[Rfam]
The family of this 277-nucleotide sequence from Sciurus vulgaris is "Mason-Pfizer monkey virus packaging signal". The literature on the family includes a 1995 paper in J Virol by Harrison et al., "Secondary structure model of the Mason-Pfizer monkey virus 5' leader sequence: identification of a structural motif common to a variety of retroviruses". It scores 166 bits against the family's covariance model. NCBI's taxonomy places the organism under Eukaryota, Opisthokonta, Dipnotetrapodomorpha, Eutheria, Sciurus.
RNA sequence: UGGCGCCCAAUGGUGAGGCAUGGAUACCGGGGAAUUCGCGAGGGAAGAGGCGUCUAAUCAUUCAGCUGAAAACAGCAAAAGUCAGUUCAACAAAGAUCGCUCUGGGAGCCUGCUGUGUCGCUCUUAAAGGUACAGUAGCGCCUAACUAUGGGACAAGAAUUAAGUAAGCAUAAAAUUUUUGUUAAGCAAUUAAAAGAAGCUUUAAAGACACGGGGAGUAAAGGUUAAGAGUGAUGAUCUUUUUAAGUUUUUUGACCUUAUUAAGGACACCUGUCUGU
Numbered sequence: 001u002g003g004c005g006c007c008c009a010a011u012g013g014u015g016a017g018g019c020a021u022g023g024a025u026a027c028c029g030g031g032g033a034a035u036u037c038g039c040g041a042g043g044g045a046a047g048a049g050g051c052g053u054c055u056a057a058u059c060a061u062u063c064a065g066c067u068g069a070a071a072a073c074a075g076c077a078a079a080a081g082u083c084a085g086u087u088c089a090a091c092a093a094a095g096a097u098c099g100c101u102c103u104g105g106g107a108g109c110c111u112g113c114u115g116u117g118u119c120g121c122u123c124u125u126a127a128a129g130g131u132a133c134a135g136u137a138g139c140g141c142c143u144a145a146c147u148a149u150g151g152g153a154c155a156a157g158a159a160u161u162a163a164g165u166a167a168g169c170a171u172a173a174a175a176u177u178u179u180u181g182u183u184a185a186g187c188a189a190u191u192a193a194a195a196g197a198a199g200c201u202u203u204a205a206a207g208a209c210a211c212g213g214g215g216a217g218u219a220a221a222g223g224u225u226a227a228g229a230g231u232g233a234u235g236a237u238c239u240u241u242u243u244a245a246g247u248u249u250u251u252u253g254a255c256c257u258u259a260u261u262a263a264g265g266a267c268a269c270c271u272g273u274c275u276g277u
Stems, first nucleotide, its partner, number of pairs: 006032003013027003037049001039047001086130002090125001098120001101117001103115003136156001138154001141152004161204003164200002211253008221239006262277001264275004